RNA sequence: GGUAGUAGCAAAUACUCAAAUGAGAACUUUGAGGACUGAAGUGGGGAAAGGUUCCAUGUGAACAGCAGUUGGACAUGGGUUAGUCGAUCCUAAGAGAUAGGGAAACUCCGUUUUAAAGUGCGCACUUGUGCGCCGUCCCUCGAAAGGGAAGCCGGUUAAUAUUCCGGCACCUGGAUUUGGAUUCUCCACGGCAACGUAACUGAACGCGGAGACGACGGCGGGGGCCCUGGGAAGAGUUCUCUUUUCUUCUUAACAGCCUAUCACCCUGAAAUCGGUUUGUCCGGAGCUAGGGUUUAACGGUUGGUAGAGCCCGACACUUUUGUCGGGUCCGGUGCGCUCUCGACGUCCCUUGAAAAUCCGCGGGAAGGAAUAGCUUUCAAGCCAGGUCGUACUCAUAACCGCAGCAGGUCUCCAAGGUGAACAGCCUCUAGUUGA
Numbered sequence: 001g002g003u004a005g006u007a008g009c010a011a012a013u014a015c016u017c018a019a020a021u022g023a024g025a026a027c028u029u030u031g032a033g034g035a036c037u038g039a040a041g042u043g044g045g046g047a048a049a050g051g052u053u054c055c056a057u058g059u060g061a062a063c064a065g066c067a068g069u070u071g072g073a074c075a076u077g078g079g080u081u082a083g084u085c086g087a088u089c090c091u092a093a094g095a096g097a098u099a100g101g102g103a104a105a106c107u108c109c110g111u112u113u114u115a116a117a118g119u120g121c122g123c124a125c126u127u128g129u130g131c132g133c134c135g136u137c138c139c140u141c142g143a144a145a146g147g148g149a150a151g152c153c154g155g156u157u158a159a160u161a162u163u164c165c166g167g168c169a170c171c172u173g174g175a176u177u178u179g180g181a182u183u184c185u186c187c188a189c190g191g192c193a194a195c196g197u198a199a200c201u202g203a204a205c206g207c208g209g210a211g212a213c214g215a216c217g218g219c220g221g222g223g224g225c226c227c228u229g230g231g232a233a234g235a236g237u238u239c240u241c242u243u244u245u246c247u248u249c250u251u252a253a254c255a256g257c258c259u260a261u262c263a264c265c266c267u268g269a270a271a272u273c274g275g276u277u278u279g280u281c282c283g284g285a286g287c288u289a290g291g292g293u294u295u296a297a298c299g300g301u302u303g304g305u306a307g308a309g310c311c312c313g314a315c316a317c318u319u320u321u322g323u324c325g326g327g328u329c330c331g332g333u334g335c336g337c338u339c340u341c342g343a344c345g346u347c348c349c350u351u352g353a354a355a356a357u358c359c360g361c362g363g364g365a366a367g368g369a370a371u372a373g374c375u376u377u378c379a380a381g382c383c384a385g386g387u388c389g390u391a392c393u394c395a396u397a398a399c400c401g402c403a404g405c406a407g408g409u410c411u412c413c414a415a416g417g418u419g420a421a422c423a424g425c426c427u428c429u430a431g432u433u434g435a
Base pairs, nucleotide, nucleotide: 015033016032017031018030019029020028034433035432036431037430043413044412045411046410049393050392054078055077056076057075058074059073063071064070085389086388087387089147090146094141095140096112097111098110100109101108102107120133121132122131151168152167153166154165155164171385172384173383174382176381177380178379179378180377181375188197189196190195205362206361207360208359209358210357214347215346216345217344219342220341221340222339223338224337225336227332228331229330230250231249232248233247234246235245254303255302256301257300258299263293264292265291266290267289268288272284273283274282275281310327311326312325313324314323315322316321399408400407415427416426417425418424

Rfam assigns this 435-nucleotide part of an RNA from Lachnellula suecica to the family "Eukaryotic large subunit ribosomal RNA". The match comes from Rfam's covariance-model search (3195 bits). The base pairs follow the family's consensus structure, which is taken from published work.